[Rfam]
RNA sequence: AUUGCUUCUCGAAUAACCGAUUGCAGAUACACCUUGUUCGCAGGCGGUUCAGACAGGGGCAUAAAACAAAUCUGAAUCCCUCAUAGGAAGGGUUAUUUCUGUUAAUCCUUCCUUGUACGGGUUUCAUGUAUAUAUAUAUAUCUGCAUAUAU
Dot-bracket structure: ..(((((.(.....(((((.((.(.(...........).).)).)))))......))))))..........(.((..(((..(((.(..((((((.......))))))....))))..))).....(((......)))..)).).......